A member of the RNA family "mir-129 microRNA precursor family" from Camelus dromedarius, 73 nucleotides long. Its family is annotated with miRNA-mediated post-transcriptional gene silencing, RISC complex and gene silencing by miRNA in the Gene Ontology. Taxonomically the source falls in Camelus (Eukaryota, Metazoa, Euteleostomi, Mammalia).
[Rfam]
RNA sequence: UUGGAUCUUUUGCGGUCUGGGCUUGCUGUUCUCUCUGCGCAAGUCAGGAAGCCCUUACCACAAAAAGUAUCUG
Numbered sequence: 001u002u003g004g005a006u007c008u009u010u011u012g013c014g015g016u017c018u019g020g021g022c023u024u025g026c027u028g029u030u031c032u033c034u035c036u037g038c039g040c041a042a043g044u045c046a047g048g049a050a051g052c053c054c055u056u057a058c059c060a061c062a063a064a065a066a067g068u069a070u071c072u073g
Stems, first nucleotide, its partner, number of pairs: 007067002009064004014059003019054004024049001026047002